Nucleotides: 113
Stems, first nucleotide, its partner, number of pairs: 012038002017033004023028001041107004046103003049098003056092004
Number, partner (000 for none) and nucleotide at each position: 001000a002000g003000u004000u005000g006000a007000a008000a009000a010000a011000g012038g013037c014000a015000a016000a017033g018032c019031g020030g021000u022000u023028c024000g025000a026000a027000a028023g029000u030020c031019c032018g033017u034000g035000a036000c037013g038012c039000a040000a041107a042106g043105c044104c045000a046103c047102c048101g049098g050097u051096c052000u053000g054000u055000g056092u057091c058090g059089u060000a061000u062000a063000g064000g065000u066000u067000c068000u069000g070000g071000c072000c073000c074000c075000c076000a077000a078000a079000a080000c081000a082000g083000a084000u085000a086000c087000c088000a089059a090058c091057g092056a093000u094000a095000u096051g097050a098049c099000a100000g101048c102047g103046g104044g105043g106042c107041u108000a109000c110000c111000g112000a113000a

The record is a 113-nucleotide sequence from Alteromonas aestuariivivens, which matches "c-di-GMP-I riboswitch aptamer" in Rfam. Rfam's curators write: GEMM was predicted in a large-scale screen for bacterial structured RNA regulatory elements. Genes associated with GEMM are involved in a diverse array of functions, including chemotaxis regulation, signal transduction, secretion and chitin. The base pairs follow the family's consensus structure, which is taken from published work. The organism belongs to Alteromonas, within Bacteria.